Small nucleolar RNA SNORD17: a 247-nucleotide RNA from Eurypyga helias. A reference for the family is Huttenhofer et al. (2001), "RNomics: an experimental approach that identifies 201 candidates for novel, small, non-messenger RNAs in mouse", EMBO J. The source organism's lineage runs through Eukaryota, Chordata, Neognathae, Phaethontimorphae and Eurypyga. The match comes from Rfam's covariance-model search (129 bits). The snoRNA HBI-43 belongs to the C/D family of snoRNAs, guiding 2'O-ribose methylation at position U3797 of the 28S rRNA. Pseudouridylation in position U3797 is predicted to be guided by the H/ACA snoRNA ACA48.
RNA sequence: GUGAGGUGAUGAUGAAGUUUAUCCAUUCUCUGAGUGCAGUGCUGCCACCCUCCUGCAGCACCCCGAUUCCUGUUCUAGGGUCUGGGUGCUGUGCAGACUCCAGAGACCCCCCCGCCUCCCAGUGUUCUACUGGGGGCUGCUGUGGUGUGUGGCUGGCUGCCUGCAGGAGUGACGUGGUGCCGGCAGGGUUGGAGCUGCUCUCUGGGGGGCUCCAUCCCCACUGAGACGAGGGAUGAUGUCUGAUCAC
Numbered sequence: 001g002u003g004a005g006g007u008g009a010u011g012a013u014g015a016a017g018u019u020u021a022u023c024c025a026u027u028c029u030c031u032g033a034g035u036g037c038a039g040u041g042c043u044g045c046c047a048c049c050c051u052c053c054u055g056c057a058g059c060a061c062c063c064c065g066a067u068u069c070c071u072g073u074u075c076u077a078g079g080g081u082c083u084g085g086g087u088g089c090u091g092u093g094c095a096g097a098c099u100c101c102a103g104a105g106a107c108c109c110c111c112c113c114g115c116c117u118c119c120c121a122g123u124g125u126u127c128u129a130c131u132g133g134g135g136g137c138u139g140c141u142g143u144g145g146u147g148u149g150u151g152g153c154u155g156g157c158u159g160c161c162u163g164c165a166g167g168a169g170u171g172a173c174g175u176g177g178u179g180c181c182g183g184c185a186g187g188g189u190u191g192g193a194g195c196u197g198c199u200c201u202c203u204g205g206g207g208g209g210c211u212c213c214a215u216c217c218c219c220a221c222u223g224a225g226a227c228g229a230g231g232g233a234u235g236a237u238g239u240c241u242g243a244u245c246a247c
Stems, first nucleotide, its partner, number of pairs: 010246004017239002020236001023232002026230003030225002034221002041184004045177004049171001050169005056163002059088005065082001068080004093160004098155001106146002112139001114137003118134007186218003190214004195209002